[Rfam]
RNA sequence: AGGAGCAUCAGGGCGACUAACGCUUGGACUCGUUGAUAAUAAAAUCGAGUUUUCAAGCGAGGAAAAUCCUCCACCCGCAGCUGCUUGCUAGUAAUAGCAUGCUCGAGAGGGCAUAUACUGGUAACAGAAACGAUACUCUGCGCGGCUAUGCGAUGAUGUUGAAAGACCGAGAUCACGCAGCAGAGAUGAAACGGACUAGUGUGAGUGGGUGCAAGCCAAAAUACUUGCCAAUGACUGCUAAAGAGGCGAGAAGUAGGCGCUUAGUAAAAUGUCGUCACUCUCUGCAUAAGAGAGCAACUCGAAUGUGAAAUAAAAUUCGAGUAAGAGAACAAAAGAGGAUUUACUCGAUGCUCCU
Numbered sequence: 001a002g003g004a005g006c007a008u009c010a011g012g013g014c015g016a017c018u019a020a021c022g023c024u025u026g027g028a029c030u031c032g033u034u035g036a037u038a039a040u041a042a043a044a045u046c047g048a049g050u051u052u053u054c055a056a057g058c059g060a061g062g063a064a065a066a067u068c069c070u071c072c073a074c075c076c077g078c079a080g081c082u083g084c085u086u087g088c089u090a091g092u093a094a095u096a097g098c099a100u101g102c103u104c105g106a107g108a109g110g111g112c113a114u115a116u117a118c119u120g121g122u123a124a125c126a127g128a129a130a131c132g133a134u135a136c137u138c139u140g141c142g143c144g145g146c147u148a149u150g151c152g153a154u155g156a157u158g159u160u161g162a163a164a165g166a167c168c169g170a171g172a173u174c175a176c177g178c179a180g181c182a183g184a185g186a187u188g189a190a191a192c193g194g195a196c197u198a199g200u201g202u203g204a205g206u207g208g209g210u211g212c213a214a215g216c217c218a219a220a221a222u223a224c225u226u227g228c229c230a231a232u233g234a235c236u237g238c239u240a241a242a243g244a245g246g247c248g249a250g251a252a253g254u255a256g257g258c259g260c261u262u263a264g265u266a267a268a269a270u271g272u273c274g275u276c277a278c279u280c281u282c283u284g285c286a287u288a289a290g291a292g293a294g295c296a297a298c299u300c301g302a303a304u305g306u307g308a309a310a311u312a313a314a315a316u317u318c319g320a321g322u323a324a325g326a327g328a329a330c331a332a333a334a335g336a337g338g339a340u341u342u343a344c345u346c347g348a349u350g351c352u353c354c355u
Base pairs, nucleotide, nucleotide: 001355002354003353005351006350007349008348009347010345011344012276013275014274015273016272017271021059022058023057024056025055026054027053028052064342065341066340069338070337072211073210074209075208080239082207083206085203086099087098088097089096090095100113101112102111103110104109114201115200119198120197121196122195136185137184138183139182140181141180142178143177144176158167159166215258216257217256225249226248227247228246229245